[Rfam]
mir-17 microRNA precursor family: a 77-nucleotide RNA sequence from Oryzias melastigma. The family's consensus secondary structure was predicted with RNAalifold. It scores 56 bits against the family's covariance model. Taxonomically the source falls in Oryzias (Eukaryota, Vertebrata, Neopterygii, Euteleosteomorpha).
RNA sequence: CUGGCAGUUCAAAAGUGCUCACAGUGCAGAUAGUGAACACAGAGCUACUGCAGUUUGUGCACUUCAUGCUUUCCAGG
Numbered sequence: 001c002u003g004g005c006a007g008u009u010c011a012a013a014a015g016u017g018c019u020c021a022c023a024g025u026g027c028a029g030a031u032a033g034u035g036a037a038c039a040c041a042g043a044g045c046u047a048c049u050g051c052a053g054u055u056u057g058u059g060c061a062c063u064u065c066a067u068g069c070u071u072u073c074c075a076g077g
Stems, first nucleotide, its partner, number of pairs: 004074001006072002010068002013064006020057002023054001025052003029049001031047003